L2-Alphaproteobacteria ribosomal protein leader: a 93-nucleotide RNA. The family's RNA type in Rfam is cis-regulatory leader. A reference for the family is Eckert and Weinberg (2020), "Discovery of 20 novel ribosomal leader candidates in bacteria and archaea", BMC Microbiol.

RNA sequence: GGCCACCUGCAGGCAGCCUGUCCCCGCGACAGCAGACCGAGGGGGCUGUAACAUAGGGUGGAGUCUCCACCCGUCUGCAAACGGAAGACAGAA
Numbered sequence: 001g002g003c004c005a006c007c008u009g010c011a012g013g014c015a016g017c018c019u020g021u022c023c024c025c026g027c028g029a030c031a032g033c034a035g036a037c038c039g040a041g042g043g044g045g046c047u048g049u050a051a052c053a054u055a056g057g058g059u060g061g062a063g064u065c066u067c068c069a070c071c072c073g074u075c076u077g078c079a080a081a082c083g084g085a086a087g088a089c090a091g092a093a
Stems, first nucleotide, its partner, number of pairs: 001047004006043003056072007